[Rfam]
RNA sequence: GGAGGUGUUUGUGUCUUCUGACGUCUGUGAUGGCUUCUGGCACUGAUCAUUUGAUCGCUUUUAACCGCUUUCUCUUGUGUGUUGAUGUUGAUCUGCUCAGUGUGGCGAACCGUCACACGGUAGAAAUCUCUGGUAUCUAAAGAAGUACUCCCGUUGCACAACAUGCGGUUGGACGCACGGUUAGAGGACUACUGUGAUCCCAGAUCUGCCAACUUUCAAAAAUUUGUUGGUUAAGUUAACAGUAGCUUAGCUUCGGAAUUUAGUUAAACUUGUUCAGAACACUUCCAUGACUAUGGGCAUUGCCGAACAAUUCGCUCAUUUUUUUU
Numbered sequence: 001g002g003a004g005g006u007g008u009u010u011g012u013g014u015c016u017u018c019u020g021a022c023g024u025c026u027g028u029g030a031u032g033g034c035u036u037c038u039g040g041c042a043c044u045g046a047u048c049a050u051u052u053g054a055u056c057g058c059u060u061u062u063a064a065c066c067g068c069u070u071u072c073u074c075u076u077g078u079g080u081g082u083u084g085a086u087g088u089u090g091a092u093c094u095g096c097u098c099a100g101u102g103u104g105g106c107g108a109a110c111c112g113u114c115a116c117a118c119g120g121u122a123g124a125a126a127u128c129u130c131u132g133g134u135a136u137c138u139a140a141a142g143a144a145g146u147a148c149u150c151c152c153g154u155u156g157c158a159c160a161a162c163a164u165g166c167g168g169u170u171g172g173a174c175g176c177a178c179g180g181u182u183a184g185a186g187g188a189c190u191a192c193u194g195u196g197a198u199c200c201c202a203g204a205u206c207u208g209c210c211a212a213c214u215u216u217c218a219a220a221a222a223u224u225u226g227u228u229g230g231u232u233a234a235g236u237u238a239a240c241a242g243u244a245g246c247u248u249a250g251c252u253u254c255g256g257a258a259u260u261u262a263g264u265u266a267a268a269c270u271u272g273u274u275c276a277g278a279a280c281a282c283u284u285c286c287a288u289g290a291c292u293a294u295g296g297g298c299a300u301u302g303c304c305g306a307a308c309a310a311u312u313c314g315c316u317c318a319u320u321u322u323u324u325u326u
Stems, first nucleotide, its partner, number of pairs: 001286008027116005043100003048095002053093004057088002060085001063082001296316003299311004
Shown here is a 326-nucleotide RNA from Pseudolycoriella hygida, a member of the family "Arthropod 7SK RNA". A reference for the family is Gruber et al. (2008), "Arthropod 7SK RNA", Mol Biol Evol. Its Rfam clan is "7SK clan".